[Rfam]
glmS glucosamine-6-phosphate activated ribozyme aptamer: a 172-nucleotide sequence from Ruminiclostridium herbifermentans.
RNA sequence: GUAAAUAAUAAAGCGCCUGGACAGAUAUUUUAUCUGUUGACGAGGAGAAGGAAGCAACACUUACCUUGUGUUGUAUCGAAAUAUUCGGCGGAUACCUUCCGGUUGUUACAAUCGUCAGAAACGAAACAAAACUUGCAGGCAACUGCAAAACAAACUAGUUUCACGUAACUAA
Numbered sequence: 001g002u003a004a005a006u007a008a009u010a011a012a013g014c015g016c017c018u019g020g021a022c023a024g025a026u027a028u029u030u031u032a033u034c035u036g037u038u039g040a041c042g043a044g045g046a047g048a049a050g051g052a053a054g055c056a057a058c059a060c061u062u063a064c065c066u067u068g069u070g071u072u073g074u075a076u077c078g079a080a081a082u083a084u085u086c087g088g089c090g091g092a093u094a095c096c097u098u099c100c101g102g103u104u105g106u107u108a109c110a111a112u113c114g115u116c117a118g119a120a121a122c123g124a125a126a127c128a129a130a131a132c133u134u135g136c137a138g139g140c141a142a143c144u145g146c147a148a149a150a151c152a153a154a155c156u157a158g159u160u161u162c163a164c165g166u167a168a169c170u171a172a
Stems, first nucleotide, its partner, number of pairs: 020038008047099005055087001100114006118162005124156001133148006
A search with the family's covariance model found it, with a score of 74 bits.